[Rfam]
RNA sequence: AUCCAACUCGGAUGUAAGUCGCUCUGGAUAAGAGUGUCUGCUAAAUGACGUAAA
Numbered sequence: 001a002u003c004c005a006a007c008u009c010g011g012a013u014g015u016a017a018g019u020c021g022c023u024c025u026g027g028a029u030a031a032g033a034g035u036g037u038c039u040g041c042u043a044a045a046u047g048a049c050g051u052a053a054a
Stems, first nucleotide, its partner, number of pairs: 013043001014041003020036006

UnaL2 LINE 3' element: a 54-nucleotide RNA from Coregonus sp. 'balchen'. Gene Ontology term of the family: transposition, RNA-mediated. The family's RNA type in Rfam is cis-regulatory element. The family's consensus secondary structure is taken from published work. Taxonomically the source falls in Coregonus (Eukaryota, Deuterostomia, Neopterygii, Euteleosteomorpha).